[Rfam]
A member of the RNA family "Small nucleolar RNA F1/F2/snoR5a" from Oryza brachyantha, 140 nucleotides long. Lineage of the source: Eukaryota > Viridiplantae > Embryophyta > Magnoliopsida > Oryza. The family's consensus secondary structure was predicted with PFOLD. The match comes from Rfam's covariance-model search (140 bits). From the family's description: This family contains F1, F2 and snoR5a sequences, all of which are members of the the H/ACA class of snoRNA that guide the sites of modification of uridines to pseudouridines.
Nucleotides: 140
Base pairs, nucleotide, nucleotide: 004062005061006060007059008058009057019049020048021047022046025043026042027041028040029039076133077132078131079130091118092117093116094115095114097112098111100109
Number, partner (000 for none) and nucleotide at each position: 001000a002000a003000a004062u005061g006060c007059c008058a009057u010000u011000u012000g013000g014000u015000a016000u017000c018000u019049g020048a021047c022046a023000c024000u025043u026042a027041g028040u029039c030000u031000u032000c033000u034000c035000u036000u037000g038000u039029g040028a041027c042026u043025a044000u045000u046022u047021g048020u049019c050000u051000c052000g053000a054000a055000a056000c057009g058008u059007g060006g061005c062004a063000u064000a065000u066000a067000a068000g069000a070000a071000a072000g073000g074000g075000g076133a077132a078131c079130g080000a081000a082000c083000c084000u085000u086000g087000c088000g089000a090000c091118a092117u093116u094115g095114g096000u097112g098111g099000c100109u101000c102000c103000u104000c105000u106000a107000u108000g109100a110000u111098c112097c113000u114095c115094c116093a117092a118091u119000u120000a121000c122000u123000a124000u125000a126000u127000a128000g129000c130079c131078g132077u133076u134000u135000a136000c137000a138000u139000u140000u